[Rfam]
RNA sequence: GAAAAACAGCCAGGGAGCCCUGAAGGGCUGAGAGGAAGCGCCUGAGACUUCGACCUGUAUUACCUGAUUUGGAUCAUGCCAACGUAGGGAGUGUUAUAUAGCAUACA
Numbered sequence: 001g002a003a004a005a006a007c008a009g010c011c012a013g014g015g016a017g018c019c020c021u022g023a024a025g026g027g028c029u030g031a032g033a034g035g036a037a038g039c040g041c042c043u044g045a046g047a048c049u050u051c052g053a054c055c056u057g058u059a060u061u062a063c064c065u066g067a068u069u070u071g072g073a074u075c076a077u078g079c080c081a082a083c084g085u086a087g088g089g090a091g092u093g094u095u096a097u098a099u100a101g102c103a104u105a106c107a
Stems, first nucleotide, its partner, number of pairs: 006095001009092002011057004017028004035051004063088004069082004

The record is a 107-nucleotide sequence from Blautia sp. An46, which matches "TPP riboswitch aptamer (THI element)" in Rfam.